Rfam assigns this 320-nucleotide sequence from Thiovulum sp. ES to the family "Bacterial RNase P class A". Its family is annotated with tRNA processing, dimeric ribonuclease P complex and ribonuclease P activity in the Gene Ontology. Rfam's curators write: Ribonuclease P (RNase P) is a ubiquitous endoribonuclease, found in archaea, bacteria and eukarya as well as chloroplasts and mitochondria. The match comes from Rfam's covariance-model search (230 bits).

RNA sequence: AGAGAGUAGAAGGCAACUGCUUGGAGACAAGAGGAAAGUCUGGGCUAUAGUAGAGCAGGGUUCUAUCUAACGGAUAGCCACCGUGAGGUGAGGGACAGUGUAACAGAGAGUAGUCUGCCGAAAGGCGAUGGUGAAACGGUAGGGUAAGAGCCUACCAGUCCUUUAAGCGAUUUUAGGAGCUGUAUAAACCCAACCCAUAGCAAGAGAAAGUUGGUAUAAGCUCUACAAUCUUAAAAUUUUCUCGCUUGAUCUCUAUUGUAAAAUAGAGGCUAGAUAAAUAGUUGCUUAAAACAGAACCCAGCUUACUCUACUCUCAAUUU
Numbered sequence: 001a002g003a004g005a006g007u008a009g010a011a012g013g014c015a016a017c018u019g020c021u022u023g024g025a026g027a028c029a030a031g032a033g034g035a036a037a038g039u040c041u042g043g044g045c046u047a048u049a050g051u052a053g054a055g056c057a058g059g060g061u062u063c064u065a066u067c068u069a070a071c072g073g074a075u076a077g078c079c080a081c082c083g084u085g086a087g088g089u090g091a092g093g094g095a096c097a098g099u100g101u102a103a104c105a106g107a108g109a110g111u112a113g114u115c116u117g118c119c120g121a122a123a124g125g126c127g128a129u130g131g132u133g134a135a136a137c138g139g140u141a142g143g144g145u146a147a148g149a150g151c152c153u154a155c156c157a158g159u160c161c162u163u164u165a166a167g168c169g170a171u172u173u174u175a176g177g178a179g180c181u182g183u184a185u186a187a188a189c190c191c192a193a194c195c196c197a198u199a200g201c202a203a204g205a206g207a208a209a210g211u212u213g214g215u216a217u218a219a220g221c222u223c224u225a226c227a228a229u230c231u232u233a234a235a236a237u238u239u240u241c242u243c244g245c246u247u248g249a250u251c252u253c254u255a256u257u258g259u260a261a262a263a264u265a266g267a268g269g270c271u272a273g274a275u276a277a278a279u280a281g282u283u284g285c286u287u288a289a290a291a292c293a294g295a296a297c298c299c300a301g302c303u304u305a306c307u308c309u310a311c312u313c314u315c316a317a318u319u320u
Stems, first nucleotide, its partner, number of pairs: 002315009012286007020031004036304003040301005045200004058196005063077005078092001079090004093191002098189002100185003115130001117126003138156006158180001159178004165172002204243004218232003222228001250269008
Dot-bracket structure: .(((((((((.(((((((.((((....))))....[[[.[[[[[((((.........((((((((((.....)))))(((((....)))).)((...(((((............(.(((....)))...).......((((((.......)))))).(((((..((....))..)))).)..)))..)))))))))))))...((((..........(((.(.....).))).......))))......((((((((....))))))))..........)))))))..........]]]]]]]]..))))))))).....